This 82-nucleotide sequence from Lupinus albus belongs to the Rfam family "small nucleolar RNA snoR114". The organism belongs to Lupinus, within Eukaryota. On this family, see Chen and Wu, Nucleic Acids Res 2009: "Mining small RNA sequencing data: a new approach to identify small nucleolar RNAs in Arabidopsis". Rfam 15.1 lists 1,645 matches to the family in 183 species. Pairs were carried over by alignment from the consensus structure, which was predicted with RNAalifold.
RNA sequence: GAACUGUGAUGAUACGUUGUGCAUUGUGUGUUAGAUGGGUCUUUCACAAGCGUCCUUGGACGAAACCAGCACAUCUGAGUUC
Number, nucleotide and partner (000 for none) at each position: 001g082002a081003a080004c079005u000006g000007u000008g000009a000010u000011g000012a000013u000014a000015c000016g000017u000018u000019g000020u000021g000022c000023a000024u000025u000026g000027u000028g000029u000030g000031u000032u000033a000034g000035a000036u000037g000038g000039g000040u000041c000042u000043u000044u000045c000046a000047c000048a000049a000050g000051c000052g000053u000054c000055c000056u000057u000058g000059g000060a000061c000062g000063a000064a000065a000066c000067c000068a000069g000070c000071a000072c000073a000074u000075c000076u000077g000078a000079g004080u003081u002082c001